Record summary: A member of the RNA family "mir-217 microRNA precursor family" from Takifugu rubripes, 93 nucleotides long. The base pairs follow the family's consensus structure, which was predicted with RNAalifold. Rfam's curators put it in the seed alignment. Rfam 15.1 lists 698 matches to the family in 641 species.
RNA sequence: GCCUUCUUGAUGCGGAUGAUACUGCAUCAGGAACUGAUUGGCUGAUGCUUUUUACCCAACAGUACCUGAUGCAUUGCCUUCAGCAUUGAAAGA
Numbered sequence: 001g002c003c004u005u006c007u008u009g010a011u012g013c014g015g016a017u018g019a020u021a022c023u024g025c026a027u028c029a030g031g032a033a034c035u036g037a038u039u040g041g042c043u044g045a046u047g048c049u050u051u052u053u054a055c056c057c058a059a060c061a062g063u064a065c066c067u068g069a070u071g072c073a074u075u076g077c078c079u080u081c082a083g084c085a086u087u088g089a090a091a092g093a
Stems, first nucleotide, its partner, number of pairs: 023073005029067003033063004039058003